[Rfam]
RNA sequence: AAAACUAAAUAAGCAAAGCCGGAGAAAGCAGGAGCCAAUGGCUUAAAUAUCCUGCCGAGGUUAAAGCUCUAAUUGCCUGAAGUGUUAUCCUUUGUGGUUUGAUGACUGAGGUAUAAUGAGUCUUUUUUUGAAACCCCGGCCAAAAUAGCUGGGGUUUAUUGUUUUUGCU
Numbered sequence: 001a002a003a004a005c006u007a008a009a010u011a012a013g014c015a016a017a018g019c020c021g022g023a024g025a026a027a028g029c030a031g032g033a034g035c036c037a038a039u040g041g042c043u044u045a046a047a048u049a050u051c052c053u054g055c056c057g058a059g060g061u062u063a064a065a066g067c068u069c070u071a072a073u074u075g076c077c078u079g080a081a082g083u084g085u086u087a088u089c090c091u092u093u094g095u096g097g098u099u100u101g102a103u104g105a106c107u108g109a110g111g112u113a114u115a116a117u118g119a120g121u122c123u124u125u126u127u128u129u130g131a132a133a134c135c136c137c138g139g140c141c142a143a144a145a146u147a148g149c150u151g152g153g154g155u156u157u158a159u160u161g162u163u164u165u166u167g168c169u
Base pairs, nucleotide, nucleotide: 028055029054030053031052032051033050034042035041036040134154135153136152137151138150139149140148142146
A member of the RNA family "Ribosomal protein L10 leader" from Nostocales cyanobacterium LEGE 11386, 169 nucleotides long. This family is a putative r-protein leader autoregulatory structure found in B. subtilis and other low-GC Gram-positive bacteria. It is located in the 5' untranslated regions of mRNAs encoding ribosomal proteins L10 and L12 (rplJ-rplL). A Rho-independent transcription terminator structure that is probably involved in regulation is included at the 3' end. NCBI's taxonomy places the organism under Bacteria, Bacillati, Cyanobacteriota, Cyanophyceae, Nostocales. For this family Rfam cites "Diverse mechanisms for regulating ribosomal protein synthesis in Escherichia coli" (Zengel and Lindahl, Prog Nucleic Acid Res Mol Biol, 1994). Gene Ontology term of the family: regulation of gene expression.